This 48-nucleotide RNA sequence from Certhia brachydactyla belongs to the Rfam family "Whalefall-1 RNA".
[Rfam]
RNA sequence: GUGUCAGGGAUGACAGAAGUUUUCCAUGGAAAACUUCAGAGGAAGGAU
Numbered sequence: 001g002u003g004u005c006a007g008g009g010a011u012g013a014c015a016g017a018a019g020u021u022u023u024c025c026a027u028g029g030a031a032a033a034c035u036u037c038a039g040a041g042g043a044a045g046g047a048u
Stems, first nucleotide, its partner, number of pairs: 004013003016037009

Source information:
A search with the family's covariance model found it, with a score of 38 bits. Taxonomically the source falls in Certhia (Eukaryota, Vertebrata, Dipnotetrapodomorpha, Sauria). It is annotated as a small RNA.